Rfam assigns this 140-nucleotide RNA sequence from Mus musculus to the family "Small nucleolar RNA SNORA48". A search with the family's covariance model found it, with a score of 55 bits. Its Rfam clan is "SNORA48 clan". Pairs were carried over by alignment from the consensus structure, which was predicted with RNAalifold. From the family's description: The snoRNA ACA 48 has been identified to guide pseudouridylation of the residue U3797 in the 28S rRNA subunit. Lineage of the source: Eukaryota > Craniata > Rodentia > Muroidea > Mus. The literature on the family includes a 1997 paper in J Mol Biol by Ofengand and Bakin, "Mapping to nucleotide resolution of pseudouridine residues in large subunit ribosomal RNAs from representative eukaryotes, prokaryotes, archaebacteria, mitochondria and chloroplasts".
Nucleotides: 140
Base pairs, nucleotide, nucleotide: 001060002059003058004057005056008053013049014048018044019043020042022038023037025035026034027033079135080134081133082132083131094128096126100124101123102122105119106118108116
Number, partner (000 for none) and nucleotide at each position: 001060u002059u003058c004057u005056c006000u007000g008053g009000c010000a011000a012000c013049a014048g015000g016000c017000a018044a019043a020042g021000a022038g023037a024000c025035a026034c027033c028000u029000u030000g031000u032000u033027g034026g035025u036000a037023u038022u039000c040000u041000u042020c043019u044018u045000a046000c047000a048014u049013u050000a051000g052000u053008c054000g055000u056005g057004g058003g059002a060001a061000g062000a063000a064000c065000u066000g067000a068000u069000g070000g071000c072000a073000g074000u075000c076000c077000u078000u079135u080134g081133u082132u083131c084000a085000u086000c087000c088000u089000a090000g091000c092000u093000u094128g095000a096126c097000a098000u099000c100124u101123g102122g103000c104000u105119u106118g107000g108116u109000g110000g111000a112000c113000a114000a115000a116108g117000c118106u119105g120000u121000c122102u123101u124100a125000u126096g127000c128094c129000u130000a131083g132082g133081a134080c135079a136000c137000a138000u139000a140000a